[Rfam]
RNA sequence: GCAUGGACGAAUUCUGCACUAGCUCUCCUCAGUAGCUAUUGCAGUCAGACACUAUGCCAGAAUGAAUUCCCAUUUCACACUCUGAUGGGUAUGCCUUUUCUAUGAGCAUGGGCAUGGGCAUGCCCUUGGAAGUGGGAUACAU
Number, nucleotide and partner (000 for none) at each position: 001g057002c056003a055004u054005g053006g052007a000008c000009g000010a000011a000012u000013u000014c044015u043016g042017c041018a040019c000020u000021a000022g000023c000024u000025c000026u000027c000028c000029u000030c000031a000032g000033u000034a000035g000036c000037u000038a000039u000040u018041g017042c016043a015044g014045u000046c000047a000048g000049a000050c000051a000052c006053u005054a004055u003056g002057c001058c000059a000060g000061a000062a000063u000064g000065a000066a000067u000068u000069c000070c135071c134072a133073u132074u131075u130076c129077a000078c000079a000080c000081u000082c000083u000084g000085a127086u000087g125088g124089g123090u122091a121092u120093g119094c118095c117096u116097u000098u000099u000100c000101u000102a000103u000104g000105a000106g000107c000108a000109u000110g000111g000112g000113c000114a000115u000116g096117g095118g094119c093120a092121u091122g090123c089124c088125c087126u000127u085128g000129g076130a075131a074132g073133u072134g071135g070136g000137a000138u000139a000140c000141a000142u000
RNA: Small nucleolar RNA SNORA15
Organism: Geococcyx californianus